Rfam assigns this 118-nucleotide sequence from Pelagibius litoralis to the family "Group II catalytic intron D1-D4-2". Lineage of the source: Bacteria > Pseudomonadota > Alphaproteobacteria > Rhodospirillales > Pelagibius.

[Rfam]
RNA sequence: GAGGGUGGGCCCCUCGGAACCGGCUUGCAGGAGCAGGUUUCAAACCUCCUUAAGCUGCAAGGGUAAAGAGCCCUGGUGGUGAGCGUUGAUGAAAAAGGCAAGGAUACUCUUGUCAGGU
Numbered sequence: 001g002a003g004g005g006u007g008g009g010c011c012c013c014u015c016g017g018a019a020c021c022g023g024c025u026u027g028c029a030g031g032a033g034c035a036g037g038u039u040u041c042a043a044a045c046c047u048c049c050u051u052a053a054g055c056u057g058c059a060a061g062g063g064u065a066a067a068g069a070g071c072c073c074u075g076g077u078g079g080u081g082a083g084c085g086u087u088g089a090u091g092a093a094a095a096a097g098g099c100a101a102g103g104a105u106a107c108u109c110u111u112g113u114c115a116g117g118u
Stems, first nucleotide, its partner, number of pairs: 001015005016041006023034004046117001049091001050089004054080002057077002061073004097114006